RNA sequence: AAUUCCGCUGUUCUUCGACUCGGCACCCUUCGGAAAUAGCCAUGGGUGUACGAGCGGUAGCUUGCCGGUAAAAUCCCAGCAUACCGGCCAAGCUCAAGGGUAUCGCCGGAAACAGCGGUGCCUCCCGUAUUAGGAAAGGAGAAUGAGAUGAAAAAGU
Numbered sequence: 001a002a003u004u005c006c007g008c009u010g011u012u013c014u015u016c017g018a019c020u021c022g023g024c025a026c027c028c029u030u031c032g033g034a035a036a037u038a039g040c041c042a043u044g045g046g047u048g049u050a051c052g053a054g055c056g057g058u059a060g061c062u063u064g065c066c067g068g069u070a071a072a073a074u075c076c077c078a079g080c081a082u083a084c085c086g087g088c089c090a091a092g093c094u095c096a097a098g099g100g101u102a103u104c105g106c107c108g109g110a111a112a113c114a115g116c117g118g119u120g121c122c123u124c125c126c127g128u129a130u131u132a133g134g135a136a137a138g139g140a141g142a143a144u145g146a147g148a149u150g151a152a153a154a155a156g157u
Stems, first nucleotide, its partner, number of pairs: 003151002011143006019054004023049006032041002059094006098123009108113001124134002
RNA: Molybdenum/Tungsten riboswitch aptamer (Moco RNA motif)
Organism: Candidatus Brevifilum fermentans